[Rfam]
RNA sequence: AAAGGGCGUUGGAAUGACACGACCAGCCCCGCUGACGGGCGCCCGGGAAGCCCUCGGGACGUCGUGUCCGCCCAGUGCUCUUU
Numbered sequence: 001a002a003a004g005g006g007c008g009u010u011g012g013a014a015u016g017a018c019a020c021g022a023c024c025a026g027c028c029c030c031g032c033u034g035a036c037g038g039g040c041g042c043c044c045g046g047g048a049a050g051c052c053c054u055c056g057g058g059a060c061g062u063c064g065u066g067u068c069c070g071c072c073c074a075g076u077g078c079u080c081u082u083u
Base pairs, nucleotide, nucleotide: 006078007077009075010074011073012072016068017067018066019065020064021063022062023061028058029057030056031055034052036050